[Rfam]
About this RNA
A member of the RNA family "Actinobacteria sRNA Ms_IGR-5" from Streptomyces sp. B93, 213 nucleotides long. The literature on the family includes a 2013 paper in RNA by Li et al., "Identification of small RNAs in Mycobacterium smegmatis using heterologous Hfq".
RNA sequence: ACACGAGAAGGGAGGUGGUUCGGCAGAUGUAUGAAUACCGGACGCGUGAGGUGGCUGCGGGCUAGCGGCCCGUCACCACAUCCAGUGCGGUGCCGGACCCGUGCGUGAAAGACGCGCACAGCCGGCCCAAUCCCAGCAGUCACCCGACCCGCGAGUCGCCGGUACGUCCGGCCGGCUCCUCCACGGAGGAACCAGACUCGCGGGUCGUCUGCG
Numbered sequence: 001a002c003a004c005g006a007g008a009a010g011g012g013a014g015g016u017g018g019u020u021c022g023g024c025a026g027a028u029g030u031a032u033g034a035a036u037a038c039c040g041g042a043c044g045c046g047u048g049a050g051g052u053g054g055c056u057g058c059g060g061g062c063u064a065g066c067g068g069c070c071c072g073u074c075a076c077c078a079c080a081u082c083c084a085g086u087g088c089g090g091u092g093c094c095g096g097a098c099c100c101g102u103g104c105g106u107g108a109a110a111g112a113c114g115c116g117c118a119c120a121g122c123c124g125g126c127c128c129a130a131u132c133c134c135a136g137c138a139g140u141c142a143c144c145c146g147a148c149c150c151g152c153g154a155g156u157c158g159c160c161g162g163u164a165c166g167u168c169c170g171g172c173c174g175g176c177u178c179c180u181c182c183a184c185g186g187a188g189g190a191a192c193c194a195g196a197c198u199c200g201c202g203g204g205u206c207g208u209c210u211g212c213g
Stems, first nucleotide, its partner, number of pairs: 015058005060127004065122002068117002071114003145207013158176006
The source organism's lineage runs through Bacteria, Actinomycetota, Actinomycetes, Streptomycetaceae and Streptomyces. It scores 98 bits against the family's covariance model.